A member of the RNA family "Eukaryotic large subunit ribosomal RNA" from Sporisorium reilianum, 496 nucleotides of a longer RNA.
Rfam's curators put it in the seed alignment.
Its family is annotated with ribosome and structural constituent of ribosome in the Gene Ontology.
NCBI's taxonomy places the organism under Eukaryota, Fungi, Basidiomycota, Ustilaginaceae, Sporisorium reilianum.

RNA sequence: UAGAAUAAUGUAGAUAAGGGAAGUCGGCAAAUUAGAUCCGUAACUUCGGGAUAAGGAUUGGCUCUAAGGGUUAGGUGGUUCGGGCCUUUGUUGGAAGCGACUGCUGGACCUGUCUGGACUGCUUUGGGCAACUGAGGCGGACCGGACGGGACCGGCGGACGUGGAAGGCAUGGGCAGCCUCGCGGCGUCCUUUCCACAAUUAAUAACCAACUUAGAACUGGUACGGACAAGGGGAAUCUGACUGUCUAAUUAAAACAUAGCAUUGCGAUGGCCAGAAAGUGGUGUUGACGCAAUGUGAUUUCUGCCCAGUGCUCUGAAUGUCAAAGUGAAGAAAUUCAACCAAGCGCGGGUAAACGGCGGGAGUAACUAUGACUCUCUUAAGGUAGCCAAAUGCCUCGUCAUCUAAUUAGUGACGCGCAUGAAUGGAUUAACGAGAUUCCCACUGUCCCUAUCUACUAUCUAGCGAAACCACAGCCAAGGGAACGGGCUUGGCAAA
Numbered sequence: 001u002a003g004a005a006u007a008a009u010g011u012a013g014a015u016a017a018g019g020g021a022a023g024u025c026g027g028c029a030a031a032u033u034a035g036a037u038c039c040g041u042a043a044c045u046u047c048g049g050g051a052u053a054a055g056g057a058u059u060g061g062c063u064c065u066a067a068g069g070g071u072u073a074g075g076u077g078g079u080u081c082g083g084g085c086c087u088u089u090g091u092u093g094g095a096a097g098c099g100a101c102u103g104c105u106g107g108a109c110c111u112g113u114c115u116g117g118a119c120u121g122c123u124u125u126g127g128g129c130a131a132c133u134g135a136g137g138c139g140g141a142c143c144g145g146a147c148g149g150g151a152c153c154g155g156c157g158g159a160c161g162u163g164g165a166a167g168g169c170a171u172g173g174g175c176a177g178c179c180u181c182g183c184g185g186c187g188u189c190c191u192u193u194c195c196a197c198a199a200u201u202a203a204u205a206a207c208c209a210a211c212u213u214a215g216a217a218c219u220g221g222u223a224c225g226g227a228c229a230a231g232g233g234g235a236a237u238c239u240g241a242c243u244g245u246c247u248a249a250u251u252a253a254a255a256c257a258u259a260g261c262a263u264u265g266c267g268a269u270g271g272c273c274a275g276a277a278a279g280u281g282g283u284g285u286u287g288a289c290g291c292a293a294u295g296u297g298a299u300u301u302c303u304g305c306c307c308a309g310u311g312c313u314c315u316g317a318a319u320g321u322c323a324a325a326g327u328g329a330a331g332a333a334a335u336u337c338a339a340c341c342a343a344g345c346g347c348g349g350g351u352a353a354a355c356g357g358c359g360g361g362a363g364u365a366a367c368u369a370u371g372a373c374u375c376u377c378u379u380a381a382g383g384u385a386g387c388c389a390a391a392u393g394c395c396u397c398g399u400c401a402u403c404u405a406a407u408u409a410g411u412g413a414c415g416c417g418c419a420u421g422a423a424u425g426g427a428u429u430a431a432c433g434a435g436a437u438u439c440c441c442a443c444u445g446u447c448c449c450u451a452u453c454u455a456c457u458a459u460c461u462a463g464c465g466a467a468a469c470c471a472c473a474g475c476c477a478a479g480g481g482a483a484c485g486g487g488c489u490u491g492g493c494a495a496a
Base pairs, nucleotide, nucleotide: 001462002461003460004459010456011455012454013453014452015451016450018448019447020446035059036058037057038056039055044049060219061218063216064215065214066213067212068211069208070207071206072205073204075197076196077195078194082190083189084175085174086173089170090169091168097162098161099160101158102157103156104155105154106153107152109150110149111148112147113146114145115144116143117142119140120139121138122137123136124135125134126133127132220224232441233440234439235438236437237436238435239433240432243257244256245255260296261295262294263293264292265291266290267289271283272282273281274280300427301426302425304358305357306356309355310354311351312350313349314348316347319346320345321344327338328337329336330335359377360376361375362374363373364372378382398414399413400412401411402410475492476491477490478489479488